Record summary:
The record is a 101-nucleotide sequence from Oceanirhabdus seepicola, which matches "SAM riboswitch aptamer (S box leader)" in Rfam. The match comes from Rfam's covariance-model search (90 bits). The source organism's lineage runs through Bacteria, Bacillota, Eubacteriales, Clostridiaceae and Oceanirhabdus.
RNA sequence: CUCUUAUCAAGAGCGGUGGAGGGACUGGCCCUAUGAAACCCGGCAACCUACUUAUGUAAAGGUGCUAAAUCCUGCGAUAUAUUCGUAUCGGUAGAUGAGAA
Numbered sequence: 001c002u003c004u005u006a007u008c009a010a011g012a013g014c015g016g017u018g019g020a021g022g023g024a025c026u027g028g029c030c031c032u033a034u035g036a037a038a039c040c041c042g043g044c045a046a047c048c049u050a051c052u053u054a055u056g057u058a059a060a061g062g063u064g065c066u067a068a069a070u071c072c073u074g075c076g077a078u079a080u081a082u083u084c085g086u087a088u089c090g091g092u093a094g095a096u097g098a099g100a101a
Stems, first nucleotide, its partner, number of pairs: 002100007013041001015040003021031003025074001027072002042066004047062002049058003070093001075090006